[Rfam]
RNA sequence: AUGUGUUUGAGGUUGUGUUGAUGUGCCAUUUUAAUUGAGCAACCAAGCAUUUGUAAGGGUCGUGAGUUUACCUCAAAGUGGUUAGGUGUUUAUACACUGAAAAGAAAGCUCUCACA
Numbered sequence: 001a002u003g004u005g006u007u008u009g010a011g012g013u014u015g016u017g018u019u020g021a022u023g024u025g026c027c028a029u030u031u032u033a034a035u036u037g038a039g040c041a042a043c044c045a046a047g048c049a050u051u052u053g054u055a056a057g058g059g060u061c062g063u064g065a066g067u068u069u070a071c072c073u074c075a076a077a078g079u080g081g082u083u084a085g086g087u088g089u090u091u092a093u094a095c096a097c098u099g100a101a102a103a104g105a106a107a108g109c110u111c112u113c114a115c116a
Stems, first nucleotide, its partner, number of pairs: 001050004012043005019037004026081004064111003085098004
RNA: drum RNA
Organism: Brochothrix phage ADU4